[Rfam]
RNA sequence: UACUCAUCAAGAGUGAUGGAGGGACUGGCCCUAUGAAAUCCGGCAACCAAGUUUAUACUAUGGUGCUAAAUCCAGCGGUAUAUGAUACCGAGAAGAUGAGAG
Numbered sequence: 001u002a003c004u005c006a007u008c009a010a011g012a013g014u015g016a017u018g019g020a021g022g023g024a025c026u027g028g029c030c031c032u033a034u035g036a037a038a039u040c041c042g043g044c045a046a047c048c049a050a051g052u053u054u055a056u057a058c059u060a061u062g063g064u065g066c067u068a069a070a071u072c073c074a075g076c077g078g079u080a081u082a083u084g085a086u087a088c089c090g091a092g093a094a095g096a097u098g099a100g101a102g
Base pairs, nucleotide, nucleotide: 001102003100004099005098006097007096008095013041015040016039017038021031022030023029025075026074027073028072042067043066044065045064047063048062050059051058052057071094076090077089078088079087080086081085